The record is a 132-nucleotide RNA from Crocuta crocuta, which matches "Small nucleolar RNA SNORA72" in Rfam. Rfam 15.1 lists 1,541 matches to the family in 547 species. Gene Ontology terms of the family: RNA processing and nucleolus. U72 is a member of the H/ACA class of snoRNAs. The snoRNA gene is located in intron 4 of the ribosomal L30 protein gene in human, mouse and chicken. By type it is an H/ACA-box small nucleolar RNA. The source organism's lineage runs through Eukaryota, Mammalia, Theria, Carnivora and Crocuta. For this family Rfam cites "The family of box ACA small nucleolar RNAs is defined by an evolutionarily conserved secondary structure and ubiquitous sequence elements essential for RNA accumulation" (Ganot et al., Genes Dev, 1997).

RNA sequence: CUGCAAAUAUUCUUGCUGUUCUGAUUUUUUCAUCAUCAGGGCAAGAUCAACAUUUGCUGUAUUAAGACUAUGCAUGUGUCCCCAGACCUAGUUCUUUUCCUAGGUCUGGUUUUAUAAAUACUGGAGAUAAAA
Numbered sequence: 001c002u003g004c005a006a007a008u009a010u011u012c013u014u015g016c017u018g019u020u021c022u023g024a025u026u027u028u029u030u031c032a033u034c035a036u037c038a039g040g041g042c043a044a045g046a047u048c049a050a051c052a053u054u055u056g057c058u059g060u061a062u063u064a065a066g067a068c069u070a071u072g073c074a075u076g077u078g079u080c081c082c083c084a085g086a087c088c089u090a091g092u093u094c095u096u097u098u099c100c101u102a103g104g105u106c107u108g109g110u111u112u113u114a115u116a117a118a119u120a121c122u123g124g125a126g127a128u129a130a131a132a
Stems, first nucleotide, its partner, number of pairs: 003057003017043009068124003072121001082109010